[Rfam]
Shown here is a 65-nucleotide RNA from Gordonia sihwensis, a member of the family "DUF3800-IX RNA". The base pairs follow the family's consensus structure, which is taken from published work. From the family's description: Actinobacteria, Firmicutes (1 example), Nitrospirae, Proteobacteria, Verrucomicrobia (1 example). Rfam classes the family as a small RNA.

Nucleotides: 065
Base pairs, nucleotide, nucleotide: 001061002060003059004058005057006056007055008054009053010052011051017033018032019030021028022027036048037047038046039045
Number, partner (000 for none) and nucleotide at each position: 001061g002060c003059c004058c005057u006056c007055a008054u009053g010052c011051c012000g013000a014000a015000u016000a017033g018032u019030c020000u021028c022027c023000c024000u025000u026000u027022g028021g029000u030019g031000c032018g033017c034000g035000u036048u037047c038046g039045c040000u041000u042000c043000a044000c045039g046038c047037g048036a049000u050000a051011g052010g053009c054008a055007u056006g057005g058004g059003g060002g061001c062000c063000g064000a065000c